This 115-nucleotide RNA from Naja naja belongs to the Rfam family "U5 spliceosomal RNA". The family has 180 seed sequences and 28,527 matches in Rfam 15.1. NCBI's taxonomy places the organism under Eukaryota, Eumetazoa, Dipnotetrapodomorpha, Squamata, Naja. U5 RNA is a component of both types of known spliceosome. The precise function of this molecule is unknown, though it is known that the 5' loop is required for splice site selection and p220 binding, and that both the 3' stem-loop and the Sm site are important for Sm protein binding and cap methylation. It is annotated as a spliceosomal small nuclear RNA. The base pairs follow the family's consensus structure, which is taken from published work.

RNA sequence: AUACUCGGGUUUCUCUUCAGAUCGUAUAAAUCUUUCGCCUUUUACUAAAGAUUUCCGUGGAGAGGAACAUUUAUGAGUUUUGAUUAAUUUUUUGAGGCCCUGCUUCGGUAGGGCU
Numbered sequence: 001a002u003a004c005u006c007g008g009g010u011u012u013c014u015c016u017u018c019a020g021a022u023c024g025u026a027u028a029a030a031u032c033u034u035u036c037g038c039c040u041u042u043u044a045c046u047a048a049a050g051a052u053u054u055c056c057g058u059g060g061a062g063a064g065g066a067a068c069a070u071u072u073a074u075g076a077g078u079u080u081u082g083a084u085u086a087a088u089u090u091u092u093u094g095a096g097g098c099c100c101u102g103c104u105u106c107g108g109u110a111g112g113g114c115u
Stems, first nucleotide, its partner, number of pairs: 003078004009068011028054008095115001097114006